[Rfam]
Nucleotides: 113
Base pairs, nucleotide, nucleotide: 001032002031003030004028005027006026007025008024010023011022012021013020078109079108080106081105082104083103084102086101087100088099089098090097
Number, partner (000 for none) and nucleotide at each position: 001032c002031g003030g004028a005027u006026g007025g008024u009000a010023u011022u012021u013020g014000a015000g016000a017000a018000a019000u020013c021012g022011a023010a024008a025007c026006u027005g028004u029000a030003c031002c032001g033000a034000g035000g036000a037000u038000u039000a040000g041000a042000a043000a044000c045000g046000u047000a048000u049000a050000a051000u052000a053000a054000a055000a056000c057000a058000a059000u060000c061000g062000g063000c064000c065000g066000a067000g068000a069000a070000g071000a072000c073000a074000c075000a076000c077000a078109c079108g080106c081105u082104u083103g084102c085000a086101u087100u088099a089098u090097u091000u092000g093000a094000u095000u096000u097090a098089a099088u100087a101086a102084g103083c104082g105081a106080g107000a108079c109078g110000a111000a112000g113000g
A member of the RNA family "pan motif" from Lachnospiraceae bacterium XBB1006, 113 nucleotides long. A search with the family's covariance model found it, with a score of 37 bits. Rfam classes the family as a cis-regulatory element.